[Rfam]
RNA sequence: AAGCAUUAUUAAACCCUCUUAUUAGUUAUAGGUGCUAUUAAGAGCAAAUGAUUAAUGCAAUAUUAAAUUUUAAUGGUGAUCCAAAGGUGAUUCAGUUCAAUUUGCUGACACCAUUUUUCACGCCAUUAACAGAU
Dot-bracket structure: ..((((.((((.....(((((..(((.......)))..))))).....))))..))))...(((.....(((((((.........((((..(.((.........)).)))))..........)))))))..)))